A member of the RNA family "TPP riboswitch aptamer (THI element)" from Acetobacter pomorum, 120 nucleotides long. Its family is annotated with thiamine pyrophosphate binding in the Gene Ontology.
RNA sequence: CGUGUUACCGAGGGGGGCUCCGACAUGGAGCUGAGAUAUUGCAGGGCCAAAAGGCAGCGCAAUGACCCUUUGAACCUGAUCCGGGUUAUGCCGGCGAAGGGACAGGUUUGGCCACCCUAU
Numbered sequence: 001c002g003u004g005u006u007a008c009c010g011a012g013g014g015g016g017g018c019u020c021c022g023a024c025a026u027g028g029a030g031c032u033g034a035g036a037u038a039u040u041g042c043a044g045g046g047c048c049a050a051a052a053g054g055c056a057g058c059g060c061a062a063u064g065a066c067c068c069u070u071u072g073a074a075c076c077u078g079a080u081c082c083g084g085g086u087u088a089u090g091c092c093g094g095c096g097a098a099g100g101g102a103c104a105g106g107u108u109u110g111g112c113c114a115c116c117c118u119a120u
Stems, first nucleotide, its partner, number of pairs: 007107003011069004017031005038063005075100003081094004